A member of the RNA family "Bacterial small signal recognition particle RNA" from Synechococcus sp. PCC 6312, 97 nucleotides long. The family's RNA type in Rfam is non-coding RNA gene. The family's consensus secondary structure is taken from published work. The signal recognition particle (SRP) is a universally conserved ribonucleoprotein involved in the co-translational targeting of proteins to membranes. Its Rfam clan is "SRP clan".
RNA sequence: GACUCGGAACCAUGCGAUGACAACGCCUCAACCUUGUCAGGCCCGGAAGGGAGCAGCAAUACGGGAUGCUUGUGAUAGGCGUGGCCUCCGGGUCUUU
Numbered sequence: 001g002a003c004u005c006g007g008a009a010c011c012a013u014g015c016g017a018u019g020a021c022a023a024c025g026c027c028u029c030a031a032c033c034u035u036g037u038c039a040g041g042c043c044c045g046g047a048a049g050g051g052a053g054c055a056g057c058a059a060u061a062c063g064g065g066a067u068g069c070u071u072g073u074g075a076u077a078g079g080c081g082u083g084g085c086c087u088c089c090g091g092g093u094c095u096u097u
Stems, first nucleotide, its partner, number of pairs: 004091005010084005017076002020073003026065003034059004042051003